[Rfam]
RNA sequence: GGUGCUGUGAGAUAUGUUUGAUAUUCUUGGUUGUUGAUUGGCUUCGACUAAGAAUCAAACAUAUUAUCAUAGCACA
Numbered sequence: 001g002g003u004g005c006u007g008u009g010a011g012a013u014a015u016g017u018u019u020g021a022u023a024u025u026c027u028u029g030g031u032u033g034u035u036g037a038u039u040g041g042c043u044u045c046g047a048c049u050a051a052g053a054a055u056c057a058a059a060c061a062u063a064u065u066a067u068c069a070u071a072g073c074a075c076a
Stems, first nucleotide, its partner, number of pairs: 005072005011065012024052002029049005
RNA: mir-190 microRNA precursor family